[Rfam]
RNA sequence: GGGUCCAUCUUCCAGCGCAGUGUUGGGUGAUUGAAGUUAUGAGGUUCCUAACACUGUCUGGUAAAGAUGGCCCC
Numbered sequence: 001g002g003g004u005c006c007a008u009c010u011u012c013c014a015g016c017g018c019a020g021u022g023u024u025g026g027g028u029g030a031u032u033g034a035a036g037u038u039a040u041g042a043g044g045u046u047c048c049u050a051a052c053a054c055u056g057u058c059u060g061g062u063a064a065a066g067a068u069g070g071c072c073c074c
Stems, first nucleotide, its partner, number of pairs: 002073002005070005010064002012061004017057011
RNA: mir-8/mir-141/mir-200 microRNA precursor family